[Rfam]
Notes: A member of the RNA family "poplar-1 RNA", 140 nucleotides long. It is annotated as a small RNA. Pairs were carried over by alignment from the consensus structure, which is taken from published work.
RNA sequence: UUUGAGCCGAGGGACCUUGUGGAAACGACGGAUCGACGCUGAUCUGAAACGGUAACAAGCGAGUCCGCUACACGUGACGGACUGACUGAAGCGUGUUGAAAUACUGAACCCUACGCAAAGGGCAGUCAGACAGUAGCUUU
Numbered sequence: 001u002u003u004g005a006g007c008c009g010a011g012g013g014a015c016c017u018u019g020u021g022g023a024a025a026c027g028a029c030g031g032a033u034c035g036a037c038g039c040u041g042a043u044c045u046g047a048a049a050c051g052g053u054a055a056c057a058a059g060c061g062a063g064u065c066c067g068c069u070a071c072a073c074g075u076g077a078c079g080g081a082c083u084g085a086c087u088g089a090a091g092c093g094u095g096u097u098g099a100a101a102u103a104c105u106g107a108a109c110c111c112u113a114c115g116c117a118a119a120g121g122g123c124a125g126u127c128a129g130a131c132a133g134u135a136g137c138u139u140u
Stems, first nucleotide, its partner, number of pairs: 012066004018057003031044005068098001071095005082129004102135004109122004